[Rfam]
RNA: S15-Halobacteria ribosomal protein leader
RNA sequence: UAGGGAACGGCACAGCCGCAGAUCCGACGCGCCGUGUGUUUGCACGGCUUGGGAAUGCGGCAGUGC
Numbered sequence: 001u002a003g004g005g006a007a008c009g010g011c012a013c014a015g016c017c018g019c020a021g022a023u024c025c026g027a028c029g030c031g032c033c034g035u036g037u038g039u040u041u042g043c044a045c046g047g048c049u050u051g052g053g054a055a056u057g058c059g060g061c062a063g064u065g066c
Stems, first nucleotide, its partner, number of pairs: 010066004015061006024053002031048007